This 187-nucleotide RNA from Ictidomys tridecemlineatus belongs to the Rfam family "Small nucleolar RNA SNORA73 family". The family is grouped with related families in Rfam's "snR30-U17 clan". A search with the family's covariance model found it, with a score of 112 bits. Lineage of the source: Eukaryota > Eumetazoa > Vertebrata > Dipnotetrapodomorpha > Ictidomys.
Nucleotides: 187
Base pairs, nucleotide, nucleotide: 001037002036003035004034005033006029007028008027011023012022013021049084050083051082052081053078055076056075057074058071115179116178117177118176119175120174121173132165133164134163136161137160142152143151144150145149
Number, partner (000 for none) and nucleotide at each position: 001037g002036g003035a004034u005033a006029c007028u008027u009000a010000a011023g012022a013021g014000g015000g016000u017000g018000a019000g020000u021013c022012u023011c024000c025000c026000u027008g028007g029006g030000c031000u032000c033005u034004g035003u036002c037001c038000a039000g040000g041000u042000g043000g044000c045000a046000u047000a048000g049084g050083g051082g052081a053078g054000c055076a056075u057074a058071g059000c060000a061000c062000u063000c064000u065000g066000c067000c068000c069000c070000a071058u072000g073000a074057u075056g076055u077000a078053c079000a080000g081052u082051c083050c084049c085000u086000u087000g088000a089000a090000g091000a092000u093000g094000u095000a096000g097000c098000u099000g100000g101000c102000c103000u104000u105000u106000g107000u108000g109000a110000c111000u112000g113000u114000g115179c116178c117177u118176g119175c120174a121173u122000a123000u124000u125000u126000c127000u128000a129000c130000a131000a132165c133164u134163u135000c136161u137160c138000a139000a140000g141000a142152g143151u144150c145149u146000u147000g148000u149145g150144g151143a152142c153000u154000a155000u156000g157000a158000c159000u160137g161136a162000a163134g164133a165132g166000a167000c168000a169000a170000a171000c172000u173121a174120u175119g176118c177117a178116g179115g180000a181000a182000a183000c184000a185000g186000u187000a